[Rfam]
RNA: Manganese Mn2+ riboswitch aptamer (yybP-ykoY)
Organism: Sphaerotilus mobilis
RNA sequence: CUAGAAUCCGCGUCGUCACCGGGGAGUAGCCGCCCUGCAACCCCGCAGGGGUCGUGCGUCAACACACUGGAUCGCCCACCGAUCCUGGCGCCGACAGCCCCCCGCCUGGCCAGACCGUUGACCUUGUCCACCUGUCGCGCGGGCCGCAGGUGUCCGAGGUCACAUGCGUUCUUCGGCCCCGG
Numbered sequence: 001c002u003a004g005a006a007u008c009c010g011c012g013u014c015g016u017c018a019c020c021g022g023g024g025a026g027u028a029g030c031c032g033c034c035c036u037g038c039a040a041c042c043c044c045g046c047a048g049g050g051g052u053c054g055u056g057c058g059u060c061a062a063c064a065c066a067c068u069g070g071a072u073c074g075c076c077c078a079c080c081g082a083u084c085c086u087g088g089c090g091c092c093g094a095c096a097g098c099c100c101c102c103c104g105c106c107u108g109g110c111c112a113g114a115c116c117g118u119u120g121a122c123c124u125u126g127u128c129c130a131c132c133u134g135u136c137g138c139g140c141g142g143g144c145c146g147c148a149g150g151u152g153u154c155c156g157a158g159g160u161c162a163c164a165u166g167c168g169u170u171c172u173u174c175g176g177c178c179c180c181g182g
Stems, first nucleotide, its partner, number of pairs: 034049003051095004056091006069085005101182002